[Rfam]
Nucleotides: 051
Base pairs, nucleotide, nucleotide: 001020002019003018004017005016006015007014008013039050040049041048042047
Number, partner (000 for none) and nucleotide at each position: 001020g002019c003018g004017c005016a006015g007014g008013a009000a010000c011000g012000a013008u014007c015006u016005u017004g018003c019002g020001c021000c022000u023000c024000c025000c026000c027000c028000a029000a030000a031000a032000a033000a034000c035000c036000g037000g038000u039050c040049g041048g042047g043000a044000c045000g046000a047042c048041c049040c050039g051000c
Rfam assigns this 51-nucleotide RNA from Aminobacter sp. MSH1 to the family "Guanidine-II riboswitch aptamer (mini-ykkC)". The family's consensus secondary structure is taken from published work. From the family's description: Simpler in structure and has fewer highly conserved nucleotide positions than the ykkC-yxkD leader.